Overview:
Rfam assigns this 108-nucleotide sequence from Clostridium luticellarii to the family "SAM riboswitch aptamer (S box leader)". The organism belongs to Clostridium, within Bacteria. The SAM riboswitch is found upstream of a number of genes which code for proteins involved in methionine or cysteine biosynthesis in Gram-positive bacteria. The match comes from Rfam's covariance-model search (90 bits).
RNA sequence: AACUUAUCAAGAGAGGUAGAGGGACUGGCCCGAUGAAACCCGACAACCAGCAUCAUUAAAAUGUAUUGGUGUCAAUUCCUGCAGGAUAUAAAUCCUGACAGAUAAGGA
Numbered sequence: 001a002a003c004u005u006a007u008c009a010a011g012a013g014a015g016g017u018a019g020a021g022g023g024a025c026u027g028g029c030c031c032g033a034u035g036a037a038a039c040c041c042g043a044c045a046a047c048c049a050g051c052a053u054c055a056u057u058a059a060a061a062u063g064u065a066u067u068g069g070u071g072u073c074a075a076u077u078c079c080u081g082c083a084g085g086a087u088a089u090a091a092a093u094c095c096u097g098a099c100a101g102a103u104a105a106g107g108a
Base pairs, nucleotide, nucleotide: 003106004105005104006103007102008101013041015040016039017038021031022030023029025081027079028078042073043072044071045070047069048068050064051063052062077100082097083096084095085094086093087092